[Rfam]
The family of this 173-nucleotide RNA from Halomonas urumqiensis is "FMN riboswitch aptamer (RFN element)". The match comes from Rfam's covariance-model search (109 bits).
RNA sequence: CACUGUUCUCAGGGCGGGGUGAAAGUCCCCACCGGCGGUGGUGGUGCCUUUCAGCAAAGAGCACCCAAGCCCGCGAGCGCCCGGUGAUUCACAGGCAAGCCUGUGCGCCGGGGUCAGCAGAUUCGGUGAGAUUCCGAAGCCGACGGUGAUAGUCCGGAUGGAAGAGAACGGCU
Numbered sequence: 001c002a003c004u005g006u007u008c009u010c011a012g013g014g015c016g017g018g019g020u021g022a023a024a025g026u027c028c029c030c031a032c033c034g035g036c037g038g039u040g041g042u043g044g045u046g047c048c049u050u051u052c053a054g055c056a057a058a059g060a061g062c063a064c065c066c067a068a069g070c071c072c073g074c075g076a077g078c079g080c081c082c083g084g085u086g087a088u089u090c091a092c093a094g095g096c097a098a099g100c101c102u103g104u105g106c107g108c109c110g111g112g113g114u115c116a117g118c119a120g121a122u123u124c125g126g127u128g129a130g131a132u133u134c135c136g137a138a139g140c141c142g143a144c145g146g147u148g149a150u151a152g153u154c155c156g157g158a159u160g161g162a163a164g165a166g167a168a169c170g171g172c173u
Base pairs, nucleotide, nucleotide: 003171004170005169006168007167008166009165010164017029018028019027031153032152033142034141035074036073037072038071069140070139077118078117122138123137124136125135126134144156145155146154
Dot-bracket structure: ..((((((((......(((.......))).[[((((((..............................[[))))..((......................................))...(((((.......)))))]])).(((.....]]))).......))))))))..